The family of this 105-nucleotide RNA sequence from Durio zibethinus is "MIR396 microRNA precursor family". The source organism's lineage runs through Eukaryota, Euphyllophyta, Spermatophyta, Gunneridae and Durio. The family's consensus secondary structure was predicted with WAR.

RNA sequence: UGUCAUGCUUUUCCACAGCUUUCUUGAACUUCUCUCCUUCAUAAUUUGCUUUCUAAGCUGCUGUUUUGGUAAGAAGUUGAAGAAAGCUGUGGGACAAUAUGGCAA
Dot-bracket structure: ..(((((.....(((.((((((.((.(.(((((......................................))))).).)).)))))).))).....)))))...